RNA: Bacterial large signal recognition particle RNA
Organism: Anaerocolumna aminovalerica
RNA sequence: CCGUGCAGCCGGGGAGAUAGCGGUGCCCUGUACCUGCAAUCCGCUACAGCAGGGGUGAUGCUUUGCCUAGGGUGAUUUAUUGUGGGGCUGCCCUUUAUAAGUGAUGUUGACGUUUGGGUCUUACGCAACAAGAAUUCGUGAACCGUGUCAGGUCAGGAAUGAAGCAGCACUAAGCGAAAGCUCUUGUGUGCCGUAAGGCAGCCUGGACCGAGUUAACUGUAGAGGUAACGCUCAUGAAAGACAUUCGAAGCAAAGCGCACGG
Numbered sequence: 001c002c003g004u005g006c007a008g009c010c011g012g013g014g015a016g017a018u019a020g021c022g023g024u025g026c027c028c029u030g031u032a033c034c035u036g037c038a039a040u041c042c043g044c045u046a047c048a049g050c051a052g053g054g055g056u057g058a059u060g061c062u063u064u065g066c067c068u069a070g071g072g073u074g075a076u077u078u079a080u081u082g083u084g085g086g087g088c089u090g091c092c093c094u095u096u097a098u099a100a101g102u103g104a105u106g107u108u109g110a111c112g113u114u115u116g117g118g119u120c121u122u123a124c125g126c127a128a129c130a131a132g133a134a135u136u137c138g139u140g141a142a143c144c145g146u147g148u149c150a151g152g153u154c155a156g157g158a159a160u161g162a163a164g165c166a167g168c169a170c171u172a173a174g175c176g177a178a179a180g181c182u183c184u185u186g187u188g189u190g191c192c193g194u195a196a197g198g199c200a201g202c203c204u205g206g207a208c209c210g211a212g213u214u215a216a217c218u219g220u221a222g223a224g225g226u227a228a229c230g231c232u233c234a235u236g237a238a239a240g241a242c243a244u245u246c247g248a249a250g251c252a253a254a255g256c257g258c259a260c261g262g
Base pairs, nucleotide, nucleotide: 001262002261003260004259005258006257008056009055010054011029012028013027014026016024018022033053034052035051036050037049061255062254063253064252065251066250070246071245072244073243074242077240078239080237081236082235083234084233085232086231089227090226093224094223095222096221097220098219101217102216103214104213105212112208113207114206115205116204117203118202119201120197121196122195123194124193125192126188127187129186130185131184132183133182135178136177137176138175139174145170146169147168148167153162154161155160